Shown here is a 53-nucleotide RNA from Streptomyces daliensis, a member of the family "L17-Actino-Proteobacteria ribosomal protein leader".
The family's consensus secondary structure is taken from published work.
It scores 44 bits against the family's covariance model.
It is annotated as a cis-regulatory leader.

[Rfam]
RNA sequence: CCGGUACCUGAUACGGCCGGGACUGCCACCGGUACCUCGUACGGCCGGUGCAG
Numbered sequence: 001c002c003g004g005u006a007c008c009u010g011a012u013a014c015g016g017c018c019g020g021g022a023c024u025g026c027c028a029c030c031g032g033u034a035c036c037u038c039g040u041a042c043g044g045c046c047g048g049u050g051c052a053g
Stems, first nucleotide, its partner, number of pairs: 001020005023053003027050007